[Rfam]
RNA: BsrC
RNA sequence: UCUCAUUUAAACGACUUAAACCCUACCAUCUUUUAAGUCCUUGCAAUCCUAUAAUUGCGCCAGUGUGAAUAAACUUCCUAAAAAUCAA
Numbered sequence: 001u002c003u004c005a006u007u008u009a010a011a012c013g014a015c016u017u018a019a020a021c022c023c024u025a026c027c028a029u030c031u032u033u034u035a036a037g038u039c040c041u042u043g044c045a046a047u048c049c050u051a052u053a054a055u056u057g058c059g060c061c062a063g064u065g066u067g068a069a070u071a072a073a074c075u076u077c078c079u080a081a082a083a084a085u086c087a088a
Stems, first nucleotide, its partner, number of pairs: 037066001040063002042059006